[Rfam]
RNA: permuted transfer-messenger RNA
Organism: Sagittula salina
RNA sequence: GGGCAUAAACGCGCAUGUAAUAAACGGAUCGGACCCGGGGGCGGUACCCGGCGGCUCCACCAUAUAUCCCGUCGUUGGGGGAUCUUGGGGCCGAAACAGGAUCGACGAACGCGUAAAGAUGUAGCUUUGUCCCGGUGAGAUACCACCGUUAUCGGUUCACAUUGCAUAAUUGCCAACGACAAUCAUGCUCCGGUAGCACUGGCCGCGUAA
Numbered sequence: 001g002g003g004c005a006u007a008a009a010c011g012c013g014c015a016u017g018u019a020a021u022a023a024a025c026g027g028a029u030c031g032g033a034c035c036c037g038g039g040g041g042c043g044g045u046a047c048c049c050g051g052c053g054g055c056u057c058c059a060c061c062a063u064a065u066a067u068c069c070c071g072u073c074g075u076u077g078g079g080g081g082a083u084c085u086u087g088g089g090g091c092c093g094a095a096a097c098a099g100g101a102u103c104g105a106c107g108a109a110c111g112c113g114u115a116a117a118g119a120u121g122u123a124g125c126u127u128u129g130u131c132c133c134g135g136u137g138a139g140a141u142a143c144c145a146c147c148g149u150u151a152u153c154g155g156u157u158c159a160c161a162u163u164g165c166a167u168a169a170u171u172g173c174c175a176a177c178g179a180c181a182a183u184c185a186u187g188c189u190c191c192g193g194u195a196g197c198a199c200u201g202g203c204c205g206c207g208u209a210a
Stems, first nucleotide, its partner, number of pairs: 001132005013122004025111002029108003035051005052093007133148004